Shown here is a 125-nucleotide sequence from Acanthosepion pharaonis, a member of the family "U5 spliceosomal RNA". Rfam classes the family as a spliceosomal small nuclear RNA. Rfam's curators write: U5 RNA is a component of both types of known spliceosome. The precise function of this molecule is unknown, though it is known that the 5' loop is required for splice site selection and p220 binding, and that both the 3' stem-loop and the Sm site are important for Sm protein binding and cap methylation. It scores 50 bits against the family's covariance model. Lineage of the source: Eukaryota > Protostomia > Spiralia > Coleoidea > Acanthosepion.

[Rfam]
RNA sequence: AUAUUCUGGUUUCCGGUCAGGAAUUGCGGAUAAAUCUUUCGCUAUUUACUAAAAAAAAUUUCCGUGGAUGGGAACAAUUUAAUGGGUGUAUAGACUUAUUUUUUUCUGUAGUUCACUGCUACUAA
Numbered sequence: 001a002u003a004u005u006c007u008g009g010u011u012u013c014c015g016g017u018c019a020g021g022a023a024u025u026g027c028g029g030a031u032a033a034a035u036c037u038u039u040c041g042c043u044a045u046u047u048a049c050u051a052a053a054a055a056a057a058a059u060u061u062c063c064g065u066g067g068a069u070g071g072g073a074a075c076a077a078u079u080u081a082a083u084g085g086g087u088g089u090a091u092a093g094a095c096u097u098a099u100u101u102u103u104u105u106c107u108g109u110a111g112u113u114c115a116c117u118g119c120u121a122c123u124a125a
Stems, first nucleotide, its partner, number of pairs: 003089002006086001009075007017067003032061004037056003107125001109124004